[Rfam]
Shown here is a 74-nucleotide RNA sequence from Alligator mississippiensis, a member of the family "Mammalian CPEB3 ribozyme". It scores 39 bits against the family's covariance model. NCBI's taxonomy places the organism under Eukaryota, Archelosauria, Crocodylia, Alligatoridae, Alligator. The base pairs follow the family's consensus structure, which is taken from published work.
RNA sequence: CUUGCAAGUUUGAGGCCACAGCAGAAGUGCUCAUGGUGGAGCCCGUCAGAUUCACUGAAUCUGUGAAUUCUGCU
Numbered sequence: 001c002u003u004g005c006a007a008g009u010u011u012g013a014g015g016c017c018a019c020a021g022c023a024g025a026a027g028u029g030c031u032c033a034u035g036g037u038g039g040a041g042c043c044c045g046u047c048a049g050a051u052u053c054a055c056u057g058a059a060u061c062u063g064u065g066a067a068u069u070c071u072g073c074u
Stems, first nucleotide, its partner, number of pairs: 014043003020074007028038002047063007
Dot-bracket structure: .............[[[...(((((((.((.......))..]]]...(((((((...)))))))....)))))))